[Rfam]
RNA sequence: UAAGCCCGAGGUCAAGUCUGGAGAUGGUCAUCCAGGGUAAGUGCGGACAAAGUCCGCCGCCAUCUCCCCCAAAAGGGCUUGACCUUUGGGUGGAGGA
Numbered sequence: 001u002a003a004g005c006c007c008g009a010g011g012u013c014a015a016g017u018c019u020g021g022a023g024a025u026g027g028u029c030a031u032c033c034a035g036g037g038u039a040a041g042u043g044c045g046g047a048c049a050a051a052g053u054c055c056g057c058c059g060c061c062a063u064c065u066c067c068c069c070c071a072a073a074a075g076g077g078c079u080u081g082a083c084c085u086u087u088g089g090g091u092g093g094a095g096g097a
Base pairs, nucleotide, nucleotide: 005090006089007088008087009086011083012082013081014080020067021066022065023064024063025062026061027060028059041058043057044056045055046054047053068077069076070075
Dot-bracket structure: ....(((((.((((.....(((((((((............(.(((((.....)))))))))))))))(((....)))..))))..))))).......
Shown here is a 97-nucleotide sequence, a member of the family "DUF1874 RNA". Rfam's curators put it in the seed alignment.